Annotation
The record is an 85-nucleotide sequence from Erwinia tracheiphila, which matches "sRNA-Xcc1" in Rfam. A reference for the family is Schmidtke et al. (2011), "Genome-wide transcriptome analysis of the plant pathogen Xanthomonas identifies sRNAs with putative virulence functions", Nucleic Acids Res. The match comes from Rfam's covariance-model search (70 bits). The family has 74 seed sequences and 421 matches in Rfam 15.1.

RNA sequence: GUCGGGAGGGCGACGAAUACAAGACCCGAAAGGGAAAUAAGUCCGCGGUUUCGUGAAGCCGUUUCUAGCCUCCUGACACCAUCUA
Numbered sequence: 001g002u003c004g005g006g007a008g009g010g011c012g013a014c015g016a017a018u019a020c021a022a023g024a025c026c027c028g029a030a031a032g033g034g035a036a037a038u039a040a041g042u043c044c045g046c047g048g049u050u051u052c053g054u055g056a057a058g059c060c061g062u063u064u065c066u067a068g069c070c071u072c073c074u075g076a077c078a079c080c081a082u083c084u085a
Base pairs, nucleotide, nucleotide: 001077002076003075004074005073006072007071008070009069012043013042014041016038025034026033027032045062046061047060048059049058